[Rfam]
RNA sequence: GAGUUACGUCUAGCGGGCGAGGUUAAGGCUGGGAAGGCCGGAGCCGUAGCGAAAGCGAGUCUGAAUAGGGCGAGUAGUCCGCUGGAGUAGACCCGAAACCGGGUGAGCUACCCAUGUCCAGAGUGAAGCGUAAGUAAAGUUACGUGGAGGCUCGAACCAACCGUCGUUGAAAAGGCGGUGGAUGAGGUGUGGGUAGGGGUGAAAUGCCAAUCGAACCCGGAAAUAGCUGGUU
Numbered sequence: 001g002a003g004u005u006a007c008g009u010c011u012a013g014c015g016g017g018c019g020a021g022g023u024u025a026a027g028g029c030u031g032g033g034a035a036g037g038c039c040g041g042a043g044c045c046g047u048a049g050c051g052a053a054a055g056c057g058a059g060u061c062u063g064a065a066u067a068g069g070g071c072g073a074g075u076a077g078u079c080c081g082c083u084g085g086a087g088u089a090g091a092c093c094c095g096a097a098a099c100c101g102g103g104u105g106a107g108c109u110a111c112c113c114a115u116g117u118c119c120a121g122a123g124u125g126a127a128g129c130g131u132a133a134g135u136a137a138a139g140u141u142a143c144g145u146g147g148a149g150g151c152u153c154g155a156a157c158c159a160a161c162c163g164u165c166g167u168u169g170a171a172a173a174g175g176c177g178g179u180g181g182a183u184g185a186g187g188u189g190u191g192g193g194u195a196g197g198g199g200u201g202a203a204a205u206g207c208c209a210a211u212c213g214a215a216c217c218c219g220g221a222a223a224u225a226g227c228u229g230g231u232u
Stems, first nucleotide, its partner, number of pairs: 005089003009086010021045004027039003049056002059071004092230002095227001099220006108196011119184001121153004128145006157181003161178005198208003
The family of this 232-nucleotide part of an RNA from Desulfofundulus salinus is "Bacterial large subunit ribosomal RNA". The source organism's lineage runs through Bacteria, Bacillati, Clostridia, Eubacteriales and Desulfofundulus. The base pairs follow the family's consensus structure, which is taken from published work. The match comes from Rfam's covariance-model search (2907 bits).